[Rfam]
RNA sequence: GGUCAUUCCUCUUUUAAAAACACGGGACCCGUCCCGGCCUGUUCACUCAAGGAGCCCUAAUCAUGGCACUGAGCGUUGAAGAAAAAUCCCAGAUCGUUAACGAGUACAAGCAAGCUGAA
Numbered sequence: 001g002g003u004c005a006u007u008c009c010u011c012u013u014u015u016a017a018a019a020a021c022a023c024g025g026g027a028c029c030c031g032u033c034c035c036g037g038c039c040u041g042u043u044c045a046c047u048c049a050a051g052g053a054g055c056c057c058u059a060a061u062c063a064u065g066g067c068a069c070u071g072a073g074c075g076u077u078g079a080a081g082a083a084a085a086a087u088c089c090c091a092g093a094u095c096g097u098u099a100a101c102g103a104g105u106a107c108a109a110g111c112a113a114g115c116u117g118a119a
Stems, first nucleotide, its partner, number of pairs: 007027004012022001046073003051070002054067001
RNA: Ribosomal S15 leader